[Rfam]
Rfam assigns this 53-nucleotide RNA sequence from Schaalia hyovaginalis to the family "msiK RNA". The family's RNA type in Rfam is cis-regulatory element. The source organism's lineage runs through Bacteria, Bacillati, Actinomycetes, Actinomycetales and Schaalia. It scores 50 bits against the family's covariance model.
RNA sequence: GACAAUGGACCCACUCGGAUCGUCCGGCACGUACCUGCCGGUGGGAAGGAAUA
Numbered sequence: 001g002a003c004a005a006u007g008g009a010c011c012c013a014c015u016c017g018g019a020u021c022g023u024c025c026g027g028c029a030c031g032u033a034c035c036u037g038c039c040g041g042u043g044g045g046a047a048g049g050a051a052u053a
Stems, first nucleotide, its partner, number of pairs: 010045004024041006